[Rfam]
The record is a 133-nucleotide RNA sequence from Desulfobulbus propionicus, which matches "c-di-AMP riboswitch aptamer (ydaO/yuaA leader)" in Rfam. A search with the family's covariance model found it, with a score of 90 bits.

RNA sequence: UGCCAGACAUUGCUGAAUUCCGCGGCAAACGGAAGCGGGGGAACCAAUUUGUUGGGGCGAAUCGCGCACUGCGCGUAAGGCAUCUCUCAGCCUGAGUCCGUCAGCUCACCUCGCAAGCGCAAUGAGAGCCUCC
Number, nucleotide and partner (000 for none) at each position: 001u000002g000003c000004c000005a000006g000007a000008c000009a000010u000011u119012g118013c117014u116015g000016a000017a000018u034019u033020c032021c031022g030023c000024g000025g000026c000027a000028a000029a000030c022031g021032g020033a019034a018035g114036c113037g112038g111039g110040g109041g000042a000043a000044c000045c054046a053047a000048u000049u000050u000051g000052u000053u046054g045055g099056g098057g097058c000059g000060a000061a000062u000063c075064g074065c073066g072067c000068a000069c000070u000071g000072c066073g065074c064075g063076u000077a000078a093079g092080g091081c090082a000083u000084c000085u000086c000087u000088c000089a000090g081091c080092c079093u078094g000095a000096g000097u057098c056099c055100g000101u000102c000103a000104g000105c000106u000107c000108a000109c040110c039111u038112c037113g036114c035115a000116a014117g013118c012119g011120c000121a000122a000123u000124g000125a000126g000127a000128g000129c000130c000131u000132c000133c000